Notes: A member of the RNA family "Small nucleolar RNA SNORD72" from Coregonus sp. 'balchen', 68 nucleotides long. The literature on the family includes a 2001 paper in EMBO J by Huttenhofer et al., "RNomics: an experimental approach that identifies 201 candidates for novel, small, non-messenger RNAs in mouse".
Nucleotides: 068
Base pairs, nucleotide, nucleotide: 002067003066004065005064006063007062008061
Number, partner (000 for none) and nucleotide at each position: 001000a002067g003066u004065u005064u006063g007062c008061c009000a010000a011000u012000g013000u014000c015000a016000a017000a018000a019000a020000a021000u022000a023000a024000a025000u026000g027000u028000c029000u030000g031000a032000a033000c034000a035000c036000a037000u038000u039000a040000g041000u042000u043000c044000a045000g046000u047000g048000a049000u050000u051000u052000u053000a054000a055000u056000u057000u058000u059000g060000a061008g062007g063006c064005a065004a066003g067002c068000u

Lineage of the source: Eukaryota > Bilateria > Vertebrata > Gnathostomata > Coregonus. snoRNA HBII-240 belongs to the CD family of snoRNAs. It is the human orthologue of the mouse MBII-240 and is predicted to guide 2'O-ribose methylation of the large 28S rRNA at residue U4590.